[Rfam]
RNA sequence: CGCGCCGCUCGAAAGGAUCGUGCCGGUCUGGGCCUCGCAAGGGGCUUGGAUCGCCGCGAUCCAGGGUGGCGCGUUCCGUUUCGAACAACGG
Number, nucleotide and partner (000 for none) at each position: 001c073002g072003c071004g070005c069006c068007g067008c066009u065010c064011g000012a000013a000014a000015g062016g061017a060018u059019c058020g057021u056022g055023c000024c000025g000026g000027u000028c000029u000030g000031g000032g045033c044034c043035u042036c041037g000038c000039a000040a000041g036042g035043g034044g033045c032046u000047u000048g000049g000050a000051u000052c000053g000054c000055c022056g021057c020058g019059a018060u017061c016062c015063a000064g010065g009066g008067u007068g006069g005070c004071g003072c002073g001074u000075u000076c091077c090078g089079u088080u000081u000082c000083g000084a000085a000086c000087a000088a079089c078090g077091g076
A member of the RNA family "Archaeal large subunit ribosomal RNA" from an uncultured Nitrososphaerota archaeon, 91 nucleotides of a longer RNA. The family's consensus secondary structure is taken from published work. Rfam links the family to the GO terms structural constituent of ribosome and ribosome.